[Rfam]
Shown here is an 84-nucleotide RNA sequence from Argiope bruennichi, a member of the family "HDV ribozyme from F. prausnitzii".
Gene Ontology term of the family: catalytic activity.
On this family, see Webb et al., Science 2009: "Widespread occurrence of self-cleaving ribozymes".
The family has 48 seed sequences and 3,803 matches in Rfam 15.1.
NCBI's taxonomy places the organism under Eukaryota, Protostomia, Panarthropoda, Araneomorphae, Argiope.
RNA sequence: GGGGAACAAAAAUAGCCCACCUCCACAUGGUGUUCCCUGGGCAAUGCUGCAAUUCUUUGGAACUGCAUCGGCUAAGAGGUUAAG
Numbered sequence: 001g002g003g004g005a006a007c008a009a010a011a012a013u014a015g016c017c018c019a020c021c022u023c024c025a026c027a028u029g030g031u032g033u034u035c036c037c038u039g040g041g042c043a044a045u046g047c048u049g050c051a052a053u054u055c056u057u058u059g060g061a062a063c064u065g066c067a068u069c070g071g072c073u074a075a076g077a078g079g080u081u082a083a084g
Base pairs, nucleotide, nucleotide: 001038002037003036004035005034006033007032019031020030021029045070046069048067049066050065051064